[Rfam]
RNA sequence: UGGCUACAAAAUAACUUAUUUUGUAGCCACUUUGAGUUACGAUAAUUACCAUAUUAAUUUACAAGAAUAUAGUAACUCCUUACUAACAUUAGGGUAAAUAUCCUCAUGUGUUAUAGUAACCCAAUUAUCGUAAAUAUAUAUACAUAUUAUCGUAAAUUAGUAUAUAAAAUUAUCGUAAAUGGAGAUGGCUACAGAAUAACAUAUUUUAUAUAUA
Numbered sequence: 001u002g003g004c005u006a007c008a009a010a011a012u013a014a015c016u017u018a019u020u021u022u023g024u025a026g027c028c029a030c031u032u033u034g035a036g037u038u039a040c041g042a043u044a045a046u047u048a049c050c051a052u053a054u055u056a057a058u059u060u061a062c063a064a065g066a067a068u069a070u071a072g073u074a075a076c077u078c079c080u081u082a083c084u085a086a087c088a089u090u091a092g093g094g095u096a097a098a099u100a101u102c103c104u105c106a107u108g109u110g111u112u113a114u115a116g117u118a119a120c121c122c123a124a125u126u127a128u129c130g131u132a133a134a135u136a137u138a139u140a141u142a143c144a145u146a147u148u149a150u151c152g153u154a155a156a157u158u159a160g161u162a163u164a165u166a167a168a169a170u171u172a173u174c175g176u177a178a179a180u181g182g183a184g185a186u187g188g189c190u191a192c193a194g195a196a197u198a199a200c201a202u203a204u205u206u207u208a209u210a211u212a213u214a
Stems, first nucleotide, its partner, number of pairs: 001214002005210002008207006016199014031184003037178011051163012065151002069147003072143003080133004085112005093103002
Shown here is a 214-nucleotide RNA sequence from Sorghum bicolor, a member of the family "MIR6217 microRNA precursor family".
Pairs were carried over by alignment from the consensus structure, which was predicted with RNAalifold.
A search with the family's covariance model found it, with a score of 142 bits.